[Rfam]
RNA sequence: UGAUGAGGUAGAGGUCGCGGGUGCGAUCAGUACGCUGAGGGAGGCGCUAAGGAGCCGCUUAUGAAUUCAGCCGAAAGGUGCACCCGCCGAAGCCCGCAGGACGUUCCUUACGUUGUCCAGCGUGGCUGGGGCUGUUGCCGAAAGGUGCAGAACUGUCACAGAUGAAUGAUACCUUCCUCGGAGGGUAUGAUUUCUACUGUGUUGAGCUAUCUUAAAC
Numbered sequence: 001u002g003a004u005g006a007g008g009u010a011g012a013g014g015u016c017g018c019g020g021g022u023g024c025g026a027u028c029a030g031u032a033c034g035c036u037g038a039g040g041g042a043g044g045c046g047c048u049a050a051g052g053a054g055c056c057g058c059u060u061a062u063g064a065a066u067u068c069a070g071c072c073g074a075a076a077g078g079u080g081c082a083c084c085c086g087c088c089g090a091a092g093c094c095c096g097c098a099g100g101a102c103g104u105u106c107c108u109u110a111c112g113u114u115g116u117c118c119a120g121c122g123u124g125g126c127u128g129g130g131g132c133u134g135u136u137g138c139c140g141a142a143a144g145g146u147g148c149a150g151a152a153c154u155g156u157c158a159c160a161g162a163u164g165a166a167u168g169a170u171a172c173c174u175u176c177c178u179c180g181g182a183g184g185g186u187a188u189g190a191u192u193u194c195u196a197c198u199g200u201g202u203u204g205a206g207c208u209a210u211c212u213u214a215a216a217c
Stems, first nucleotide, its partner, number of pairs: 006212006017087009034071006091127004095122003099118004128154002132150004138144001157201005
Shown here is a 217-nucleotide RNA sequence from Paenibacillus xylanivorans, a member of the family "Lysine riboswitch aptamer".
NCBI's taxonomy places the organism under Bacteria, Bacillota, Bacilli, Caryophanales, Paenibacillus.